[Rfam]
RNA sequence: CCCUUAUCUUUUAAAAGUUUCAAGUUGGUCCCUUAUCUUUAUUUUAGGUUUCAAAUUGGUCCCUUCCGUCAAUUUUUUAACUAUUUCCGUUAAGUUUUGACACGUGGCAAACUAAUUUGGACACGUGGCACACUUAGACAGAUGACACAUGUCCAAAUUUAACGGUAACAGUACAAAAAUUGACGGAAGGGACCAAUUUGAAACCUAAAAAAAAGAUAAGGGACCAAUUUGAAACUUUUAAAAGAUAAGGGA
Numbered sequence: 001c002c003c004u005u006a007u008c009u010u011u012u013a014a015a016a017g018u019u020u021c022a023a024g025u026u027g028g029u030c031c032c033u034u035a036u037c038u039u040u041a042u043u044u045u046a047g048g049u050u051u052c053a054a055a056u057u058g059g060u061c062c063c064u065u066c067c068g069u070c071a072a073u074u075u076u077u078u079a080a081c082u083a084u085u086u087c088c089g090u091u092a093a094g095u096u097u098u099g100a101c102a103c104g105u106g107g108c109a110a111a112c113u114a115a116u117u118u119g120g121a122c123a124c125g126u127g128g129c130a131c132a133c134u135u136a137g138a139c140a141g142a143u144g145a146c147a148c149a150u151g152u153c154c155a156a157a158u159u160u161a162a163c164g165g166u167a168a169c170a171g172u173a174c175a176a177a178a179a180u181u182g183a184c185g186g187a188a189g190g191g192a193c194c195a196a197u198u199u200g201a202a203a204c205c206u207a208a209a210a211a212a213a214a215g216a217u218a219a220g221g222g223a224c225c226a227a228u229u230u231g232a233a234a235c236u237u238u239u240a241a242a243a244g245a246u247a248a249g250g251g252a
Stems, first nucleotide, its partner, number of pairs: 002250007023229003027225003031221010042210002045207003
Shown here is a 252-nucleotide RNA sequence from Trifolium subterraneum, a member of the family "MIR2655 microRNA precursor family". The family's consensus secondary structure was predicted with RNAalifold. NCBI's taxonomy places the organism under Eukaryota, Magnoliopsida, Mesangiospermae, Pentapetalae, Trifolium. The match comes from Rfam's covariance-model search (141 bits).